The family of this 101-nucleotide RNA from Lactuca saligna is "Plastid-rps12 3UTR RNA". The source organism's lineage runs through Eukaryota, Viridiplantae, Streptophyta, campanulids and Lactuca. Plastid rpl20 is a non-coding RNA (ncRNA) recognised in plastids. It was found in the three prime untranslated region (3UTR) of rps12 gene, its 3UTR location sugest a role in transcript maduration.
RNA sequence: UGUUACUUUUGGAUAUUUGAAAUCCACUCACCUCAAUUUAAGUUGAGAAGCAAUUCUCCAUUGAUAGCAAAUGAUUAUCCAUUAAGUGGAGGAAAUCUUAG
Numbered sequence: 001u002g003u004u005a006c007u008u009u010u011g012g013a014u015a016u017u018u019g020a021a022a023u024c025c026a027c028u029c030a031c032c033u034c035a036a037u038u039u040a041a042g043u044u045g046a047g048a049a050g051c052a053a054u055u056c057u058c059c060a061u062u063g064a065u066a067g068c069a070a071a072u073g074a075u076u077a078u079c080c081a082u083u084a085a086g087u088g089g090a091g092g093a094a095a096u097c098u099u100a101g
Base pairs, nucleotide, nucleotide: 010026011025012024013023014022056091057090058089059088060082061081063079064078065077066076067075

By type it is a cis-regulatory element. Rfam 15.1 lists 1,710 matches to the family in 1,426 species.